The family of this 130-nucleotide RNA from Prosthecodimorpha hirschii is "rpsB sRNA".
A search with the family's covariance model found it, with a score of 42 bits.
The family's RNA type in Rfam is small RNA.
The family's consensus secondary structure is taken from published work.

[Rfam]
RNA sequence: CACACGCGGGUGUCGGGCGGCGGCCGAAGGGUGAAACCCUGGCCGUACCGUCCUUCCGGUGUUUGUUCCGAGCCCCAGGCCCGGCCAAACGCGAACCCCGCGGAGGCAGAACCGGAAAAGAAGGAGACGG
Numbered sequence: 001c002a003c004a005c006g007c008g009g010g011u012g013u014c015g016g017g018c019g020g021c022g023g024c025c026g027a028a029g030g031g032u033g034a035a036a037c038c039c040u041g042g043c044c045g046u047a048c049c050g051u052c053c054u055u056c057c058g059g060u061g062u063u064u065g066u067u068c069c070g071a072g073c074c075c076c077a078g079g080c081c082c083g084g085c086c087a088a089a090c091g092c093g094a095a096c097c098c099c100g101c102g103g104a105g106g107c108a109g110a111a112c113c114g115g116a117a118a119a120g121a122a123g124g125a126g127a128c129g130g
Stems, first nucleotide, its partner, number of pairs: 001105001003103001005102006015053002020048001061090005